[Rfam]
RNA: Bacterial RNase P class A
RNA sequence: CGGGAUGGCUGGACGAUCGCGUGCCGCUUCGGCGGCCCGAGGAACGUCCGGGCUCCGCAGGACAGGGUGGUGGGUAACGCCCACUCGGGGCAACCCGCAGGCCAGUGCCACAGAAAAUAGACCGCCCGCGUUCUACGCGGGUCAGGGUGAAACGGUGGUGUAAGAGACCACCAGCGGCCCAGGUGACUGGGCCGGCUCGGUAAACCCCACCCGGAGCAAGGCCAGACAGGCUGCGAUUGAGGGCUGUUCGCCCGAGCAGCCGGGUAGGCCGCUCGAGUGCACCGGCAACGGUGCGCCUAGAUGGAUGAUCGUCACCUGCUGGUGCGGGCAACCGCAGCAGGCACAGAACCCGGCGUACAGGUCAUCCCGUCCU
Numbered sequence: 001c002g003g004g005a006u007g008g009c010u011g012g013a014c015g016a017u018c019g020c021g022u023g024c025c026g027c028u029u030c031g032g033c034g035g036c037c038c039g040a041g042g043a044a045c046g047u048c049c050g051g052g053c054u055c056c057g058c059a060g061g062a063c064a065g066g067g068u069g070g071u072g073g074g075u076a077a078c079g080c081c082c083a084c085u086c087g088g089g090g091c092a093a094c095c096c097g098c099a100g101g102c103c104a105g106u107g108c109c110a111c112a113g114a115a116a117a118u119a120g121a122c123c124g125c126c127c128g129c130g131u132u133c134u135a136c137g138c139g140g141g142u143c144a145g146g147g148u149g150a151a152a153c154g155g156u157g158g159u160g161u162a163a164g165a166g167a168c169c170a171c172c173a174g175c176g177g178c179c180c181a182g183g184u185g186a187c188u189g190g191g192c193c194g195g196c197u198c199g200g201u202a203a204a205c206c207c208c209a210c211c212c213g214g215a216g217c218a219a220g221g222c223c224a225g226a227c228a229g230g231c232u233g234c235g236a237u238u239g240a241g242g243g244c245u246g247u248u249c250g251c252c253c254g255a256g257c258a259g260c261c262g263g264g265u266a267g268g269c270c271g272c273u274c275g276a277g278u279g280c281a282c283c284g285g286c287a288a289c290g291g292u293g294c295g296c297c298u299a300g301a302u303g304g305a306u307g308a309u310c311g312u313c314a315c316c317u318g319c320u321g322g323u324g325c326g327g328g329c330a331a332c333c334g335c336a337g338c339a340g341g342c343a344c345a346g347a348a349c350c351c352g353g354c355g356u357a358c359a360g361g362u363c364a365u366c367c368c369g370u371c372c373u
Base pairs, nucleotide, nucleotide: 001369002368003367004366005365006364007363008362009361010360011358012313013312014311015310016309017308018307020039021038023036024035025034026033027032044356045355046354048353049352050351051350052349053216054215055214056213060249061248062247063246065212066211067210068209069208070084071083072082073081074080085099086097087096088095089094100207101206105205106204107201108200109199122146123145124142125141126140127139128138129137130136131135154172155171156170157169158168159167174196175194176193177192178191179190180189181188182187220270221269222268223267229261230260231259232258233257234256241253242252243251244250277296278295279294280293281292282291283290284289